[Rfam]
Annotation: The record is a 134-nucleotide RNA sequence from Caenorhabditis elegans, which matches "Caenorhabditis snoRNA ceN67" in Rfam. On this family, see Jia et al., BMC Mol Biol 2007: "Systematic identification of non-coding RNA 2,2,7-trimethylguanosine cap structures in Caenorhabditis elegans". By type it is an H/ACA-box small nucleolar RNA. Its family is annotated with RNA processing and nucleolus in the Gene Ontology. Pairs were carried over by alignment from the consensus structure, which was predicted with RNAalifold.
RNA sequence: GCCCCCAUUAUCUUUCCAUCAAAUGAUUUAGGACGUCAUUGAUGGCUUAGAAUGGGGAAAAUUGAAUCGGUAGAAUGUGAUUUGUGAGUUGUUCACUGACACGUGGCAACUCGUAUUCGCUACUUCCUACAUUU
Number, nucleotide and partner (000 for none) at each position: 001g000002c000003c057004c056005c055006c054007a053008u052009u051010a000011u000012c000013u000014u000015u000016c045017c044018a043019u042020c041021a040022a039023a000024u038025g037026a036027u035028u000029u000030a000031g000032g000033a000034c000035g027036u026037c025038a024039u022040u021041g020042a019043u018044g017045g016046c000047u000048u000049a000050g000051a009052a008053u007054g006055g005056g004057g003058a000059a000060a000061a000062u000063u000064g000065a000066a000067u000068c000069g127070g126071u000072a124073g123074a000075a000076u000077g120078u119079g118080a117081u000082u000083u000084g000085u113086g112087a111088g110089u109090u108091g107092u000093u106094c105095a104096c103097u000098g000099a000100c000101a000102c000103g096104u095105g094106g093107c091108a090109a089110c088111u087112c086113g085114u000115a000116u000117u080118c079119g078120c077121u000122a000123c073124u072125u000126c070127c069128u000129a000130c000131a000132u000133u000134u000